[Rfam]
Rfam assigns this 45-nucleotide RNA sequence from Paenibacillus curdlanolyticus to the family "PreQ1 (pre queuosine) riboswitch aptamer". From the family's description: This family is a bacterial riboswitch that binds to the metabolite preQ1, an intermediate in the biosynthesis of the modified nucleoside queuosine from GTP. One example of this riboswitch is located in the leader of the Bacillus subtilis ykvJKLM (queCDEF) operon which encodes four genes necessary for queuosine production. The family has 43 seed sequences and 873 matches in Rfam 15.1. The base pairs follow the family's consensus structure. Rfam links the family to the GO term queuosine biosynthetic process.
RNA sequence: AAGGUAGAGGUUCGCAAACUUCCCUCUCUAAAAAACUAAGCAUAA
Dot-bracket structure: .....(((((.....[......))))).........]........